Record summary:
The family of this 91-nucleotide sequence from Bacillus sp. FJAT-18017 is "pan motif". By type it is a cis-regulatory element. NCBI's taxonomy places the organism under Bacteria, Bacilli, Caryophanales, Bacillaceae, Bacillus.
[Rfam]
RNA sequence: UGGGCGGUAUCCAAAAGAACUGCACCUUAAAAGAGCAAUUCCUAACUAAACAUGGUUUCUGCCUAGAUCCGUAAUGGACCGGGACAGAGGG
Numbered sequence: 001u002g003g004g005c006g007g008u009a010u011c012c013a014a015a016a017g018a019a020c021u022g023c024a025c026c027u028u029a030a031a032a033g034a035g036c037a038a039u040u041c042c043u044a045a046c047u048a049a050a051c052a053u054g055g056u057u058u059c060u061g062c063c064u065a066g067a068u069c070c071g072u073a074a075u076g077g078a079c080c081g082g083g084a085c086a087g088a089g090g091g
Base pairs, nucleotide, nucleotide: 002026003025004023005022006021007020008019010018011017059087060086061085062083063082064081066079068078069077070076
Dot-bracket structure: .(((((((.((.....))))))).))................................((((((.(.(((.....)))).))).)))....